[Rfam]
The record is a 106-nucleotide RNA sequence from Setaria italica, which matches "Small nucleolar RNA snoR26" in Rfam. The family's RNA type in Rfam is C/D-box small nucleolar RNA. Its family is annotated with RNA processing and nucleolus in the Gene Ontology.
RNA sequence: GGAGCAUCCAUGAUGUAUUGUUACCUCUACAUUCAUCCUUGCACUUUGAGGGAAGGUUGCCCCUUUCUAGUGAAGAAAACAUUGUGGGAAAGUAUCUGAGAGGCUC
Numbered sequence: 001g002g003a004g005c006a007u008c009c010a011u012g013a014u015g016u017a018u019u020g021u022u023a024c025c026u027c028u029a030c031a032u033u034c035a036u037c038c039u040u041g042c043a044c045u046u047u048g049a050g051g052g053a054a055g056g057u058u059g060c061c062c063c064u065u066u067c068u069a070g071u072g073a074a075g076a077a078a079a080c081a082u083u084g085u086g087g088g089a090a091a092g093u094a095u096c097u098g099a100g101a102g103g104c105u106c
Stems, first nucleotide, its partner, number of pairs: 002106004007101002